[Rfam]
RNA: UnaL2 LINE 3' element
Organism: Gadus morhua
RNA sequence: UGUAUUAACCUAUGAAAGUCGCUUUGGAUAAAAGUGUCUGCUAAAUGCCCUAAU
Numbered sequence: 001u002g003u004a005u006u007a008a009c010c011u012a013u014g015a016a017a018g019u020c021g022c023u024u025u026g027g028a029u030a031a032a033a034g035u036g037u038c039u040g041c042u043a044a045a046u047g048c049c050c051u052a053a054u
Base pairs, nucleotide, nucleotide: 013043014041016039020036021035022034023033024032025031